Shown here is a 131-nucleotide RNA from Panthera leo, a member of the family "Small nucleolar RNA SNORA64/SNORA10 family".
Its family is annotated with RNA processing and nucleolus in the Gene Ontology.
The family's consensus secondary structure is taken from published work.
About the family: This family belongs to the H/ACA class of small nucleolar RNAs (snoRNAs) which act as guides in the the modification of uridines to pseudouridines. This family includes the human snoRNAs U64 and ACA10 and mouse MBI-29.
It is annotated as an H/ACA-box small nucleolar RNA.
A search with the family's covariance model found it, with a score of 108 bits.
A reference for the family is Narayanan et al. (1999), "Nucleolar localization signals of box H/ACA small nucleolar RNAs", EMBO J.
RNA sequence: CUUCUCUCAGCUCCGCUUAAUCAUACUCGGUGUGUGGUUGGCGUGUUUUCAGAGAGAGAGAGAGGAAGGCUCUCCUAAUGCACGGCAGACCGGCCCCAAGUGGCCUCUCUGUUCCUAGGAGUGCAACAGUG
Dot-bracket structure: .(((((((..(((.(...((((((((.....))))))))..........).))).)))))..)).......(((((.(.(......(((..((((......))))..)))...).))))))..........